[Rfam]
RNA: Small nucleolar RNA SNORD14
RNA sequence: UGUCCGUGAUGACAAAUCCAAAGGCUUGUUUCUCAGAAACAUUCGCAGUGGCCGCCUGAUAUAGCUUUCGCCUCGCCGGGCUUGAGAGCUUAUGUUGCCCUUUCAACCUUCCUUGGAUGUCUGAGACA
Numbered sequence: 001u002g003u004c005c006g007u008g009a010u011g012a013c014a015a016a017u018c019c020a021a022a023g024g025c026u027u028g029u030u031u032c033u034c035a036g037a038a039a040c041a042u043u044c045g046c047a048g049u050g051g052c053c054g055c056c057u058g059a060u061a062u063a064g065c066u067u068u069c070g071c072c073u074c075g076c077c078g079g080g081c082u083u084g085a086g087a088g089c090u091u092a093u094g095u096u097g098c099c100c101u102u103u104c105a106a107c108c109u110u111c112c113u114u115g116g117a118u119g120u121c122u123g124a125g126a127c128a
Stems, first nucleotide, its partner, number of pairs: 001128004064089006
Dot-bracket structure: ((((...........................................................((((((..............))))))...................................))))